[Rfam]
RNA sequence: GGGGUACGCUUAGAGCCCCACCGUGCGGAAGUGUUAAUAGUGGUACUUUUGGCCGAGUACAACGGUUAGUGAAUC
Dot-bracket structure: (((((.........)))))..............(((((.((.((((((......)))))).)).)))))......